[Rfam]
tRNA: a 73-nucleotide sequence from Atopobium deltae. It is annotated as a transfer RNA. The match comes from Rfam's covariance-model search (65 bits). Pairs were carried over by alignment from the consensus structure, which is taken from published work.
RNA sequence: GCCCUCGUAGCUCAGAGGAUAGAGCACAGGUUUCCUAAACCUGGUGUCGGCGGUUCGAAUCCGUCCGGGGGCA
Numbered sequence: 001g002c003c004c005u006c007g008u009a010g011c012u013c014a015g016a017g018g019a020u021a022g023a024g025c026a027c028a029g030g031u032u033u034c035c036u037a038a039a040c041c042u043g044g045u046g047u048c049g050g051c052g053g054u055u056c057g058a059a060u061c062c063g064u065c066c067g068g069g070g071g072c073a
Stems, first nucleotide, its partner, number of pairs: 001072007010025004027043005049065005